[Rfam]
RNA sequence: GGAUCAAUGAUAACUCCCACCUAAACAUUCAUUGGAAAAGCUGAACAAAAUGAGUGAAAACUCACUACUGUCUCACUCAUUGAACUGAGGUCC
Numbered sequence: 001g002g003a004u005c006a007a008u009g010a011u012a013a014c015u016c017c018c019a020c021c022u023a024a025a026c027a028u029u030c031a032u033u034g035g036a037a038a039a040g041c042u043g044a045a046c047a048a049a050a051u052g053a054g055u056g057a058a059a060a061c062u063c064a065c066u067a068c069u070g071u072c073u074c075a076c077u078c079a080u081u082g083a084a085c086u087g088a089g090g091u092c093c
Stems, first nucleotide, its partner, number of pairs: 001093005026056005032048003
RNA: Small nucleolar RNA SNORD116